[Rfam]
RNA sequence: AAAAAAGUUUUCGAUAUAGAACACUCAUAUCCAUAAAAUGAUUUGAACCCUUU
Numbered sequence: 001a002a003a004a005a006a007g008u009u010u011u012c013g014a015u016a017u018a019g020a021a022c023a024c025u026c027a028u029a030u031c032c033a034u035a036a037a038a039u040g041a042u043u044u045g046a047a048c049c050c051u052u053u
Stems, first nucleotide, its partner, number of pairs: 011033001013031005

Annotation: The record is a 53-nucleotide RNA sequence from Morella rubra, which matches "Plastid-atpF group II-D1 intron" in Rfam. The literature on the family includes a 2023 paper in Plant Commun by Richter et al., "Retrograde signaling in plants: A critical review focusing on the GUN pathway and beyond". Pairs were carried over by alignment from the consensus structure, which was predicted with LocARNA. The organism belongs to Morella, within Eukaryota. Its family is annotated with Group II intron splicing in the Gene Ontology. Rfam's curators write: Plastid atpF is a non-coding RNA (ncRNA) recognised in plastids. It has been reported in the intron group II-D1 region of ATP synthase (atpF) genes.